The family of this 66-nucleotide RNA sequence from Pararge aegeria is "mir-1000 microRNA precursor family".

RNA sequence: CCCCGCCAUAUUGUCCUGUCACAGCAGUACGUGAUACUACUGCUGCGCCGGGACAAGCCGGCGGUG
Numbered sequence: 001c002c003c004c005g006c007c008a009u010a011u012u013g014u015c016c017u018g019u020c021a022c023a024g025c026a027g028u029a030c031g032u033g034a035u036a037c038u039a040c041u042g043c044u045g046c047g048c049c050g051g052g053a054c055a056a057g058c059c060g061g062c063g064g065u066g
Stems, first nucleotide, its partner, number of pairs: 003064004012055007022045008
Rfam links the family to the GO terms miRNA-mediated post-transcriptional gene silencing, RISC complex and negative regulation of glutamate secretion, neurotransmission.